[Rfam]
RNA sequence: GUGUCCCCAGAUGUUCUCUGCAAGCACUUCACGAGGCACUUUUUGGAGAGCUUUUGUGAAGUGUUUGGGGGAACUCUUGGUGUCAC
Numbered sequence: 001g002u003g004u005c006c007c008c009a010g011a012u013g014u015u016c017u018c019u020g021c022a023a024g025c026a027c028u029u030c031a032c033g034a035g036g037c038a039c040u041u042u043u044u045g046g047a048g049a050g051c052u053u054u055u056g057u058g059a060a061g062u063g064u065u066u067g068g069g070g071g072a073a074c075u076c077u078u079g080g081u082g083u084c085a086c
Stems, first nucleotide, its partner, number of pairs: 005082001007080003013074007022066015
This 86-nucleotide RNA from Panicum miliaceum belongs to the Rfam family "mir-395 microRNA precursor family". The match comes from Rfam's covariance-model search (67 bits). Taxonomically the source falls in Panicum sect. Panicum (Eukaryota, Magnoliopsida, Mesangiospermae, Petrosaviidae). Pairs were carried over by alignment from the consensus structure, which was predicted with PFOLD. Rfam links the family to the GO terms miRNA-mediated post-transcriptional gene silencing and RISC complex.